Source information: A member of the RNA family "ZMP/ZTP riboswitch aptamer (pfl RNA motif)" from Paradevosia tibetensis, 81 nucleotides long. The organism belongs to Paradevosia, within Bacteria.

[Rfam]
RNA sequence: CUGACCUCACGUGACUGGCGAGAUCGGGUGGAAAACCACCGUGGAGCGUGAGCGUAGCAGCCGUUCGCCUGGGCACCCUUC
Numbered sequence: 001c002u003g004a005c006c007u008c009a010c011g012u013g014a015c016u017g018g019c020g021a022g023a024u025c026g027g028g029u030g031g032a033a034a035a036c037c038a039c040c041g042u043g044g045a046g047c048g049u050g051a052g053c054g055u056a057g058c059a060g061c062c063g064u065u066c067g068c069c070u071g072g073g074c075a076c077c078c079u080u081c
Stems, first nucleotide, its partner, number of pairs: 003055001006052007015043001017069005028039004060074003
Dot-bracket structure: ..(..(((((((..(.[[[[[......((((....))))...)..)))))))..)....(((..]]]]]..))).......